[Rfam]
RNA sequence: GCGAAAGUGGCGGAAUCGGCAGACGCGCACGUUUGAGGGGCGUGUGGGUAACUCCAUGAGGGUUCAAGUCCCUCCUUUCGCA
Dot-bracket structure: (((((((..(((...........))).(((((.......))))).............(((((.......)))))))))))).
RNA: tRNA
Organism: Heliorestis acidaminivorans